Small nucleolar RNA SNORD26: a 76-nucleotide sequence from Diceros bicornis. The match comes from Rfam's covariance-model search (84 bits). The family has 17 seed sequences and 451 matches in Rfam 15.1.

[Rfam]
RNA sequence: CUACGGGGAUGAUUUUAGGAAUGGAACUCUCUCUCUCUGAUGGAUGAGUGGAGAAAAUGUAAGAAUUCUGAGUAGC
Numbered sequence: 001c002u003a004c005g006g007g008g009a010u011g012a013u014u015u016u017a018g019g020a021a022u023g024g025a026a027c028u029c030u031c032u033c034u035c036u037c038u039g040a041u042g043g044a045u046g047a048g049u050g051g052a053g054a055a056a057a058u059g060u061a062a063g064a065a066u067u068c069u070g071a072g073u074a075g076c
Stems, first nucleotide, its partner, number of pairs: 001075004
Its family is annotated with RNA processing and nucleolus in the Gene Ontology. The family's consensus secondary structure was predicted with PFOLD.